[Rfam]
RNA sequence: UGUUUCUAAGGGCAAACCCGGCGAAAACCGGGGACGCAAAGUCGUGAGUCUAAGAUAAUGUUUUUUGGCUCGAUCGAUUAUCUUAAUAUUAUGACUGUCUGACUGCUGAU
Dot-bracket structure: ...........((...(((((......)))))...))..((((..(((((....(((.............................)))...)))..)).))))......
RNA: c-di-GMP-I riboswitch aptamer